[Rfam]
RNA sequence: CUGCGAAUAAUUCUCGCUGUCCUGGGAUCUGUGACCAGGGGAGGCUAGACAUUCGCUAGAGGAAAACUGCAUUGUGUCCUCCAGGACUAGACUGCUGCUCUAGGACUGGCUUUGUGAAUGCUAGUGACAGCU
Number, nucleotide and partner (000 for none) at each position: 001c000002u000003g056004c055005g054006a000007a000008u000009a000010a000011u000012u000013c000014u000015c000016g000017c043018u042019g000020u040021c039022c038023u037024g036025g035026g000027a000028u000029c000030u000031g000032u000033g000034a000035c025036c024037a023038g022039g021040g020041g000042a018043g017044g000045c000046u000047a000048g000049a000050c000051a000052u000053u000054c005055g004056c003057u000058a000059g000060a000061g000062g000063a000064a000065a000066a125067c124068u123069g121070c120071a000072u000073u000074g000075u000076g000077u000078c000079c000080u000081c109082c108083a107084g106085g000086a000087c103088u102089a101090g100091a000092c000093u000094g000095c000096u000097g000098c000099u000100c090101u089102a088103g087104g000105a000106c084107u083108g082109g081110c000111u000112u000113u000114g000115u000116g000117a000118a000119u000120g070121c069122u000123a068124g067125u066126g000127a000128c000129a000130g000131c000132u000
A member of the RNA family "Small nucleolar RNA SNORA72" from Indicator maculatus, 132 nucleotides long. Its family is annotated with nucleolus and RNA processing in the Gene Ontology. U72 is a member of the H/ACA class of snoRNAs. It is annotated as an H/ACA-box small nucleolar RNA.